[Rfam]
This 373-nucleotide RNA sequence from Vagococcus penaei belongs to the Rfam family "Bacterial RNase P class B".
About the family: Ribonuclease P (RNase P) is a ubiquitous endoribonuclease, found in archaea, bacteria and eukarya as well as chloroplasts and mitochondria. Its best characterised activity is the generation of mature 5'-ends of tRNAs by cleaving the 5'-leader elements of precursor-tRNAs. Cellular RNase Ps are ribonucleoproteins. RNA from bacterial RNase Ps retains its catalytic activity in the absence of the protein subunit, i.e. it is a ribozyme.
The source organism's lineage runs through Bacteria, Bacillati, Lactobacillales, Enterococcaceae and Vagococcus.
It scores 334 bits against the family's covariance model.
It is annotated as a ribozyme.

RNA sequence: GUUUUCGGAUAAUCGCAGGAUAGAGUAAUCUAUUUUGAGGAAAGUCCAUGCUCGCACAGGCUGAGAUGCCUGUAGUGAUCGUGCUUAACGAAACAAUAAGUUAAGGUAUCUGGUUUGACUAGAUAACGGCAGAUAAAACAGCUAAAGCGUUACGCCAUGCUGGAGUAGUCUUGAAAGUGCCACAGUGACGAAGUAAUUUUAGAAAUAGAAUUAGUGGAACGGGUAAACCCCUCGAGCGAGCAACCCAAACUUAUGGUAGGGGCAUCUUUCUCAAGAAAAUGAACUUAGAGAAGGAACAGUGUAUUCUGUAGACAGAUGAUUAUCGUUAAUACUUGUUCCUGAGAAGUAUUAAUACAAAACAUGGCUUACAGAA
Numbered sequence: 001g002u003u004u005u006c007g008g009a010u011a012a013u014c015g016c017a018g019g020a021u022a023g024a025g026u027a028a029u030c031u032a033u034u035u036u037g038a039g040g041a042a043a044g045u046c047c048a049u050g051c052u053c054g055c056a057c058a059g060g061c062u063g064a065g066a067u068g069c070c071u072g073u074a075g076u077g078a079u080c081g082u083g084c085u086u087a088a089c090g091a092a093a094c095a096a097u098a099a100g101u102u103a104a105g106g107u108a109u110c111u112g113g114u115u116u117g118a119c120u121a122g123a124u125a126a127c128g129g130c131a132g133a134u135a136a137a138a139c140a141g142c143u144a145a146a147g148c149g150u151u152a153c154g155c156c157a158u159g160c161u162g163g164a165g166u167a168g169u170c171u172u173g174a175a176a177g178u179g180c181c182a183c184a185g186u187g188a189c190g191a192a193g194u195a196a197u198u199u200u201a202g203a204a205a206u207a208g209a210a211u212u213a214g215u216g217g218a219a220c221g222g223g224u225a226a227a228c229c230c231c232u233c234g235a236g237c238g239a240g241c242a243a244c245c246c247a248a249a250c251u252u253a254u255g256g257u258a259g260g261g262g263c264a265u266c267u268u269u270c271u272c273a274a275g276a277a278a279a280u281g282a283a284c285u286u287a288g289a290g291a292a293g294g295a296a297c298a299g300u301g302u303a304u305u306c307u308g309u310a311g312a313c314a315g316a317u318g319a320u321u322a323u324c325g326u327u328a329a330u331a332c333u334u335g336u337u338c339c340u341g342a343g344a345a346g347u348a349u350u351a352a353u354a355c356a357a358a359a360c361a362u363g364g365c366u367u368a369c370a371g372a373a
Base pairs, nucleotide, nucleotide: 004373005372006371007369008324009323010322011321012320013319014318016037017036018035019034020033021032042367043366044365046364047363048362049361050360051240052239053238054237055236056073057072058071059070060069061068079235080234081233083231084105085104086103087102088101089100106127107125108124109123110122111121112120128230129229131171132170133169134168139162140161141160142159147155148154177228178227179224180223181222194213195212196211197210198209199208200207201206244261245260246259265295266294267293268292269291270290271289296309297308298307299306326352327351328350329349330348331347332346333345334344